The record is a 103-nucleotide sequence from Microcella frigidaquae, which matches "mraW RNA" in Rfam. Pairs were carried over by alignment from the consensus structure, which is taken from published work. A search with the family's covariance model found it, with a score of 57 bits.
RNA sequence: UUCUGACCGCGGGGGCCUGACUCCCAGCCGUGACCCGCCCUGGCGCACCUUCCCCGGUGCCAGGUCGCACGGAUGGGGAUCAGGGCCCCGCGAGCAGGACCGA
Numbered sequence: 001u002u003c004u005g006a007c008c009g010c011g012g013g014g015g016c017c018u019g020a021c022u023c024c025c026a027g028c029c030g031u032g033a034c035c036c037g038c039c040c041u042g043g044c045g046c047a048c049c050u051u052c053c054c055c056g057g058u059g060c061c062a063g064g065u066c067g068c069a070c071g072g073a074u075g076g077g078g079a080u081c082a083g084g085g086c087c088c089c090g091c092g093a094g095c096a097g098g099a100c101c102g103a
Base pairs, nucleotide, nucleotide: 009091010090011089012088013087014086019081020080022078023077024076025075026074028072029071030070031069036067037066039064040063041062042061043060044059045058046057